Shown here is a 126-nucleotide RNA from Propithecus coquereli, a member of the family "U4atac minor spliceosomal RNA".
The match comes from Rfam's covariance-model search (109 bits).
Rfam describes the family as follows. U4atac is an essential component of the minor U12-type spliceosome complex which is required for removal of the rarer class of eukaryotic introns (AT-AC, U12-type).
Gene Ontology terms of the family: U4atac snRNP, pre-mRNA 5'-splice site binding and mRNA 5'-splice site recognition.
By type it is a spliceosomal small nuclear RNA.

Nucleotides: 126
Stems, first nucleotide, its partner, number of pairs: 006018004021060003026055007038046002082113006090104006
Number, partner (000 for none) and nucleotide at each position: 001000a002000c003000c004000a005000u006018c007017c008016u009015u010000u011000u012000c013000u014000c015009g016008g017007g018006g019000u020000u021060g022059c023058g024000c025000u026055a027054c028053u029052g030051u031050c032049c033000a034000a035000u036000g037000a038046a039045u040000g041000a042000g043000u044000a045039g046038u047000a048000a049032g050031g051030g052029c053028a054027g055026u056000c057000c058023u059022g060021c061000u062000g063000a064000u065000g066000c067000c068000u069000a070000c071000c072000c073000a074000a075000c076000a077000u078000g079000c080000c081000u082113g083112c084111a085110u086109c087108a088000a089000c090104u091103a092102g093101a094100g095099c096000u097000u098000u099095g100094c101093u102092u103091u104090a105000c106000u107000u108087u109086g110085g111084u112083g113082c114000a115000a116000u117000u118000u119000u120000u121000g122000g123000a124000a125000a126000a